RNA: Antisense RNA which regulates isiA expression
Organism: Chlorogloeopsis fritschii
RNA sequence: AAUAACCAAAGAUUGUCAGUGGAUUAAGAGUCGGGUUAAUAAUUAAACGGACGUCUCCCAAAUGCGUGUCAUAAAUUCCACCAAAAAUCAUUGCCUUUAGCACUAAUAAAAAUGCACCAAAACCCAGAACAAUUAGGUGAUUUCCCAAAAUGAAACCUAACUUUUUUGGAUCGUUCCA
Numbered sequence: 001a002a003u004a005a006c007c008a009a010a011g012a013u014u015g016u017c018a019g020u021g022g023a024u025u026a027a028g029a030g031u032c033g034g035g036u037u038a039a040u041a042a043u044u045a046a047a048c049g050g051a052c053g054u055c056u057c058c059c060a061a062a063u064g065c066g067u068g069u070c071a072u073a074a075a076u077u078c079c080a081c082c083a084a085a086a087a088u089c090a091u092u093g094c095c096u097u098u099a100g101c102a103c104u105a106a107u108a109a110a111a112a113u114g115c116a117c118c119a120a121a122a123c124c125c126a127g128a129a130c131a132a133u134u135a136g137g138u139g140a141u142u143u144c145c146c147a148a149a150a151u152g153a154a155a156c157c158u159a160a161c162u163u164u165u166u167u168g169g170a171u172c173g174u175u176c177c178a
Base pairs, nucleotide, nucleotide: 136175137174138173139172140171141170144169145168147166148165